[Rfam]
RNA sequence: GGCCUAAACUUGAAGUAGGGUAGUUAAGUAAGGUUAGCCGAUCCUUCUAAUCUACUUUAAUCCGAAUUUAGGCCC
Numbered sequence: 001g002g003c004c005u006a007a008a009c010u011u012g013a014a015g016u017a018g019g020g021u022a023g024u025u026a027a028g029u030a031a032g033g034u035u036a037g038c039c040g041a042u043c044c045u046u047c048u049a050a051u052c053u054a055c056u057u058u059a060a061u062c063c064g065a066a067u068u069u070a071g072g073c074c075c
Base pairs, nucleotide, nucleotide: 001074002073003072004071005070006069007068008067011064012063014061016059017058018057019056020055021054022053023052025050027048028047030045032043033042034041035040
This 75-nucleotide RNA sequence from Haemonchus placei belongs to the Rfam family "mir-5928 microRNA precursor family". The organism belongs to Haemonchus, within Eukaryota. The family's consensus secondary structure was predicted with RNAalifold.